The record is a 164-nucleotide sequence from Medicago truncatula, which matches "MIR2606 microRNA precursor family" in Rfam. The family has 4 seed sequences and 227 matches in Rfam 15.1.
[Rfam]
RNA sequence: AAAACUUAGGUACAAUUCCUUAAGUGCUUUUCAUAUGGUUUUUAACUAAAAAUAAAUAUUUUUUGGAUAUAACAAACUUUGAGAAAAUUAUGGAUUUGAGGAAAUCAUGAUGAAUUUAGUUAAGAACCAUACAGAAAGCAUAUAAGGAAUUGUACCUAAGUUUU
Dot-bracket structure: .(((((((.((((.((((((((.((.(((((..((((((((((.((((((................................................................)))))).))))))))))..))))).)).)))))))).)))).))))))).

Rfam links the family to the GO terms miRNA-mediated post-transcriptional gene silencing and RISC complex. The source organism's lineage runs through Eukaryota, Magnoliopsida, rosids, Trifolieae and Medicago.